RNA sequence: AUGGUAUCAGAUGCAGUGCCACUCUAUACUAU
Numbered sequence: 001a002u003g004g005u006a007u008c009a010g011a012u013g014c015a016g017u018g019c020c021a022c023u024c025u026a027u028a029c030u031a032u
Base pairs, nucleotide, nucleotide: 001032002031003030004029005028006027007026009025010024011023012021013020014018
Notes: Shown here is a 32-nucleotide RNA sequence from Dentiscutata erythropus, a member of the family "Iron response element II". Rfam links the family to the GO term response to iron ion. Taxonomically the source falls in Dentiscutata (Eukaryota, Glomeromycota, Glomeromycotina, Glomeromycetes). The literature on the family includes a 1989 paper in Proc Natl Acad Sci U S A by Koeller et al., "A cytosolic protein binds to structural elements within the iron regulatory region of the transferrin receptor mRNA". IRE, TFRC, SLC40A1, SDHB, SLC11A2, CDC42BPA, ACO2, ALAS2_H.SAPIENS, CDC14A, EPAS1, ALAS2, qoxD, Hao1, NDUFS1, transferrin, Aconitate. It is annotated as a cis-regulatory element.